[Rfam]
Shown here is a 226-nucleotide RNA from Vibrio astriarenae, a member of the family "MicX Vibrio cholerae sRNA". The family's consensus secondary structure was predicted with CMfinder. For this family Rfam cites "RNase E-dependent processing stabilizes MicX, a Vibrio cholerae sRNA" (Davis and Waldor, Mol Microbiol, 2007). The source organism's lineage runs through Bacteria, Pseudomonadota, Gammaproteobacteria, Vibrionaceae and Vibrio.

RNA sequence: AUAAUAACGAUAAGGGCGACCGCAAGGUCGCCCAGUUGUUUUGACUGACUCUUCUCGGCUUAUGUGGAAUAGGGAUGAGAAGAAACUUUGGUUUGGCCGCCGACAUGUUAGUCAAAUGCAACAGUUUGGUGUUACGCAUAGCUGGCUGUCGAAGUAUUCCUUACUAUAUGCGUGCUACGACAGUAAAUUUGUAACGAAAGCCCGAUGAACAUUCGGGCUUUUUUUA
Numbered sequence: 001a002u003a004a005u006a007a008c009g010a011u012a013a014g015g016g017c018g019a020c021c022g023c024a025a026g027g028u029c030g031c032c033c034a035g036u037u038g039u040u041u042u043g044a045c046u047g048a049c050u051c052u053u054c055u056c057g058g059c060u061u062a063u064g065u066g067g068a069a070u071a072g073g074g075a076u077g078a079g080a081a082g083a084a085a086c087u088u089u090g091g092u093u094u095g096g097c098c099g100c101c102g103a104c105a106u107g108u109u110a111g112u113c114a115a116a117u118g119c120a121a122c123a124g125u126u127u128g129g130u131g132u133u134a135c136g137c138a139u140a141g142c143u144g145g146c147u148g149u150c151g152a153a154g155u156a157u158u159c160c161u162u163a164c165u166a167u168a169u170g171c172g173u174g175c176u177a178c179g180a181c182a183g184u185a186a187a188u189u190u191g192u193a194a195c196g197a198a199a200g201c202c203c204g205a206u207g208a209a210c211a212u213u214c215g216g217g218c219u220u221u222u223u224u225u226a
Stems, first nucleotide, its partner, number of pairs: 014033008037123002041115009055103005131195006145184007199219007206211001